The record is an 81-nucleotide sequence from Carlito syrichta, which matches "Small nucleolar RNA SNORD115" in Rfam. The literature on the family includes a 2000 paper in Proc Natl Acad Sci U S A by Cavaille et al., "Identification of brain-specific and imprinted small nucleolar RNA genes exhibiting an unusual genomic organization". NCBI's taxonomy places the organism under Eukaryota, Metazoa, Deuterostomia, Theria, Carlito. Rfam classes the family as a C/D-box small nucleolar RNA.
RNA sequence: GGGUCAAUGAUGAAGACUUUAUAUUGCUUUGAGGAGAAGUGAUGACUUAAAUACUAGCACAAUGGCAUGAUGCUGAGGUCC
Number, nucleotide and partner (000 for none) at each position: 001g081002g080003g079004u078005c075006a074007a000008u072009g071010a000011u000012g000013a000014a000015g000016a000017c000018u000019u000020u000021a000022u000023a000024u000025u000026g000027c000028u000029u000030u000031g000032a000033g000034g000035a000036g000037a000038a000039g000040u000041g000042a000043u000044g000045a000046c000047u000048u000049a000050a000051a000052u000053a000054c000055u000056a000057g000058c000059a000060c000061a000062a000063u000064g000065g000066c000067a000068u000069g000070a000071u009072g008073c000074u006075g005076a000077g000078g004079u003080c002081c001